Rfam assigns this 81-nucleotide sequence from Camellia sinensis to the family "Small nucleolar RNA SNORD34".
It is annotated as a C/D-box small nucleolar RNA.
The family is grouped with related families in Rfam's "SNORD34 clan".
Its family is annotated with nucleolus and RNA processing in the Gene Ontology.
About the family: snoRNA U34 is found in intron 5 of the ribosomal protein L13a gene in humans.
Pairs were carried over by alignment from the consensus structure, which was predicted with PFOLD.
Taxonomically the source falls in Camellia (Eukaryota, Tracheophyta, Spermatophyta, Magnoliopsida).

RNA sequence: UGAGGCCUAUGAUGAUCUAAAUAUUUGCCUACAUUGUCUGAUUAUCCAUGACGGAGGAAUCUGAACUUUUCUGAGGCCACA
Numbered sequence: 001u002g003a004g005g006c007c008u009a010u011g012a013u014g015a016u017c018u019a020a021a022u023a024u025u026u027g028c029c030u031a032c033a034u035u036g037u038c039u040g041a042u043u044a045u046c047c048a049u050g051a052c053g054g055a056g057g058a059a060u061c062u063g064a065a066c067u068u069u070u071c072u073g074a075g076g077c078c079a080c081a
Base pairs, nucleotide, nucleotide: 001081002080004078005077006076007075